[Rfam]
mir-971 microRNA precursor family: a 76-nucleotide sequence from Galleria mellonella.
The match comes from Rfam's covariance-model search (74 bits).
Pairs were carried over by alignment from the consensus structure, which was predicted with RNAalifold.
Its family is annotated with RISC complex and miRNA-mediated post-transcriptional gene silencing in the Gene Ontology.
RNA sequence: AAUUUGGCUCACUCUAAGUAUGAACGCCAAGCAUAUUGCUUACAGUUUGGUGUUCUACCUUACAGUGAACUAAAUG
Numbered sequence: 001a002a003u004u005u006g007g008c009u010c011a012c013u014c015u016a017a018g019u020a021u022g023a024a025c026g027c028c029a030a031g032c033a034u035a036u037u038g039c040u041u042a043c044a045g046u047u048u049g050g051u052g053u054u055c056u057a058c059c060u061u062a063c064a065g066u067g068a069a070c071u072a073a074a075u076g
Stems, first nucleotide, its partner, number of pairs: 006071002009068005015062003025052008
The source organism's lineage runs through Eukaryota, Panarthropoda, Allotriocarida, Endopterygota and Galleria.